[Rfam]
RNA sequence: AGCCUCCUUCUCCAUGAGAAUGGGCGCCAUUGAUCGCGGUGUCCAGAAAUUGCUAAUGACGCUAAACAGAGACACAGGUGAUGCUCCCACCACAGUAAAUGCAUGGCAGUGGUGACGGUGAGCUCUGUAACACUU
Numbered sequence: 001a002g003c004c005u006c007c008u009u010c011u012c013c014a015u016g017a018g019a020a021u022g023g024g025c026g027c028c029a030u031u032g033a034u035c036g037c038g039g040u041g042u043c044c045a046g047a048a049a050u051u052g053c054u055a056a057u058g059a060c061g062c063u064a065a066a067c068a069g070a071g072a073c074a075c076a077g078g079u080g081a082u083g084c085u086c087c088c089a090c091c092a093c094a095g096u097a098a099a100u101g102c103a104u105g106g107c108a109g110u111g112g113u114g115a116c117g118g119u120g121a122g123c124u125c126u127g128u129a130a131c132a133c134u135u
Base pairs, nucleotide, nucleotide: 002062003061006058008056021045022044023043024042025041026040027039074128075127076126077125078124088114089113090112091111092110093109
Background
Rfam assigns this 135-nucleotide RNA sequence from Equus asinus to the family "Small nucleolar RNA SNORA1". Rfam classes the family as an H/ACA-box small nucleolar RNA. Taxonomically the source falls in Equus (Eukaryota, Metazoa, Vertebrata, Teleostomi). ACA1 is a member of the H/ACA class of snoRNA that guide the sites of modification of uridines to pseudouridines.